[Rfam]
RNA sequence: UGCUAAAAGUUGCGCAAGUCGCUCUGGAUAAGAGCGUCUGCUAAAUGUCAUGUC
Numbered sequence: 001u002g003c004u005a006a007a008a009g010u011u012g013c014g015c016a017a018g019u020c021g022c023u024c025u026g027g028a029u030a031a032g033a034g035c036g037u038c039u040g041c042u043a044a045a046u047g048u049c050a051u052g053u054c
Base pairs, nucleotide, nucleotide: 014041015040016039020036021035022034023033024032025031

The family of this 54-nucleotide RNA from Synaphobranchus kaupii is "UnaL2 LINE 3' element". Rfam 15.1 lists 493,311 matches to the family in 99 species. The match comes from Rfam's covariance-model search (57 bits). Gene Ontology term of the family: transposition, RNA-mediated. The eel long interspersed element (LINE) UnaL2 and its partner short interspersed element (SINE) share a conserved 3' tail containing a stem-loop that is critical for their retrotransposition. By type it is a cis-regulatory element.